[Rfam]
RNA sequence: CGGGCAGAACUUGCAAGUAUUGGCGAGAAUAUUCAGGCUUAUUAUGUUGGCGACUGAGGGUGCUUUAUUAUGUUGUCCGUUUCGGCGGAUUGGCUGGUGUGUGCCCUUUGGUUUGUUGAUGAUGCGCCGCAUUUAUUCUCGUCAUCGGGUUGCAUGUGACUGAGAUACGGUAGUUUAGGUGCUGGGGAUCUGCGAAGCCUUGUUGUUUCGAGUCCUGGUUUCCAACUACUGCUGCGGUCAUUAUACACAUUAUAUUGAGCAGGCGUUUAGGCGCGGUCAAAGGCUUGUACGAGUUGUGUGCGUAUGAUGUGUGGACGGUUUAUUCCGUAGCAUGUUGUACGAGGCUGAUUGUCGGUACGAGUAAUAUUUGGCUCUGUUCAGUGGAUUGCAAUCUAAUGCAUGCGUGGUCUGCCUGUCCCGUCUUGAAACACGG
Numbered sequence: 001c002g003g004g005c006a007g008a009a010c011u012u013g014c015a016a017g018u019a020u021u022g023g024c025g026a027g028a029a030u031a032u033u034c035a036g037g038c039u040u041a042u043u044a045u046g047u048u049g050g051c052g053a054c055u056g057a058g059g060g061u062g063c064u065u066u067a068u069u070a071u072g073u074u075g076u077c078c079g080u081u082u083c084g085g086c087g088g089a090u091u092g093g094c095u096g097g098u099g100u101g102u103g104c105c106c107u108u109u110g111g112u113u114u115g116u117u118g119a120u121g122a123u124g125c126g127c128c129g130c131a132u133u134u135a136u137u138c139u140c141g142u143c144a145u146c147g148g149g150u151u152g153c154a155u156g157u158g159a160c161u162g163a164g165a166u167a168c169g170g171u172a173g174u175u176u177a178g179g180u181g182c183u184g185g186g187g188a189u190c191u192g193c194g195a196a197g198c199c200u201u202g203u204u205g206u207u208u209c210g211a212g213u214c215c216u217g218g219u220u221u222c223c224a225a226c227u228a229c230u231g232c233u234g235c236g237g238u239c240a241u242u243a244u245a246c247a248c249a250u251u252a253u254a255u256u257g258a259g260c261a262g263g264c265g266u267u268u269a270g271g272c273g274c275g276g277u278c279a280a281a282g283g284c285u286u287g288u289a290c291g292a293g294u295u296g297u298g299u300g301c302g303u304a305u306g307a308u309g310u311g312u313g314g315a316c317g318g319u320u321u322a323u324u325c326c327g328u329a330g331c332a333u334g335u336u337g338u339a340c341g342a343g344g345c346u347g348a349u350u351g352u353c354g355g356u357a358c359g360a361g362u363a364a365u366a367u368u369u370g371g372c373u374c375u376g377u378u379c380a381g382u383g384g385a386u387u388g389c390a391a392u393c394u395a396a397u398g399c400a401u402g403c404g405u406g407g408u409c410u411g412c413c414u415g416u417c418c419c420g421u422c423u424u425g426a427a428a429c430a431c432g433g
Stems, first nucleotide, its partner, number of pairs: 001415008010406001012404001017146001021144011150395001152393001155390005418433004

Background: Rfam assigns this 433-nucleotide part of an RNA from Folsomia candida to the family "Eukaryotic large subunit ribosomal RNA". Taxonomically the source falls in Folsomia (Eukaryota, Opisthokonta, Metazoa, Ecdysozoa). It scores 3097 bits against the family's covariance model.